[Rfam]
Small nucleolar RNA snoR8a: an 81-nucleotide RNA from Scenedesmus sp. NREL 46B-D3. The match comes from Rfam's covariance-model search (41 bits). The source organism's lineage runs through Eukaryota, Viridiplantae, Chlorophyta, Sphaeropleales and Scenedesmus. The family's consensus secondary structure was predicted with WAR. For this family Rfam cites "Multiple snoRNA gene clusters from Arabidopsis" (Brown et al., RNA, 2001).
RNA sequence: ACAGGUGCAAUGAUUAUAGUAAUAUCGGAUCAGCCUCUAGGGGCUUGAAGACACUGAUACACCCAUAGAAUCUGAGCACCU
Numbered sequence: 001a002c003a004g005g006u007g008c009a010a011u012g013a014u015u016a017u018a019g020u021a022a023u024a025u026c027g028g029a030u031c032a033g034c035c036u037c038u039a040g041g042g043g044c045u046u047g048a049a050g051a052c053a054c055u056g057a058u059a060c061a062c063c064c065a066u067a068g069a070a071u072c073u074g075a076g077c078a079c080c081u
Stems, first nucleotide, its partner, number of pairs: 003081002006078002